[Rfam]
RNA: L31-Coriobacteria ribosomal protein leader
RNA sequence: GCCUUGGUCGGGACCCAAGGCAUACGAAGGAG
Numbered sequence: 001g002c003c004u005u006g007g008u009c010g011g012g013a014c015c016c017a018a019g020g021c022a023u024a025c026g027a028a029g030g031a032g
Base pairs, nucleotide, nucleotide: 001021002020003019004018005017006016007015